The record is an 81-nucleotide RNA sequence from Gottschalkia acidurici, which matches "S10-Clostridia ribosomal protein leader" in Rfam. A reference for the family is Eckert and Weinberg (2020), "Discovery of 20 novel ribosomal leader candidates in bacteria and archaea", BMC Microbiol. The base pairs follow the family's consensus structure, which is taken from published work.
RNA sequence: GACAUGCGAUGAGACAAAAGGUUGCUUAAUUUACUUAAGGGAAUUUUUGUUGAGAAUGUCCGGCUUAGAAUCGGGCGACAA
Numbered sequence: 001g002a003c004a005u006g007c008g009a010u011g012a013g014a015c016a017a018a019a020g021g022u023u024g025c026u027u028a029a030u031u032u033a034c035u036u037a038a039g040g041g042a043a044u045u046u047u048u049g050u051u052g053a054g055a056a057u058g059u060c061c062g063g064c065u066u067a068g069a070a071u072c073g074g075g076c077g078a079c080a081a
Stems, first nucleotide, its partner, number of pairs: 014050003018047004025039005057080004063076004
A search with the family's covariance model found it, with a score of 49 bits.